This 54-nucleotide RNA sequence belongs to the Rfam family "DUF3800-VI RNA".
RNA sequence: CGGUUGGGAGAGCUGCGGUUGCGCGGCUCGUUAGAGUAAGUCUCUACCCGGCUG
Number, nucleotide and partner (000 for none) at each position: 001c054002g053003g052004u051005u050006g049007g048008g047009a000010g029011a028012g027013c026014u025015g024016c023017g000018g000019u000020u000021g000022c000023g016024c015025g014026g013027c012028u011029c010030g000031u000032u046033a045034g044035a043036g042037u000038a000039a000040g000041u000042c036043u035044c034045u033046a032047c008048c007049c006050g005051g004052c003053u002054g001
The family's consensus secondary structure is taken from published work. It is annotated as a cis-regulatory element.